[Rfam]
A member of the RNA family "SAM riboswitch aptamer (S box leader)" from Acetivibrio ethanolgignens, 98 nucleotides long.
RNA sequence: CUCUUAUUCCGAGUGGUGGAGAGUUAAGGCUCUGUGAAACCACGGCAACCCCGCAUAGCGGAAGGUGCCAAUCUAAGCGAGCAAUCGAACAAUAAGAG
Numbered sequence: 001c002u003c004u005u006a007u008u009c010c011g012a013g014u015g016g017u018g019g020a021g022a023g024u025u026a027a028g029g030c031u032c033u034g035u036g037a038a039a040c041c042a043c044g045g046c047a048a049c050c051c052c053g054c055a056u057a058g059c060g061g062a063a064g065g066u067g068c069c070a071a072u073c074u075a076a077g078c079g080a081g082c083a084a085u086c087g088a089a090c091a092a093u094a095a096g097a098g
Stems, first nucleotide, its partner, number of pairs: 001098008013043005021032003029074001044069004049065002051061004078087003
The source organism's lineage runs through Bacteria, Bacillota, Clostridia, Acetivibrionales and Acetivibrio.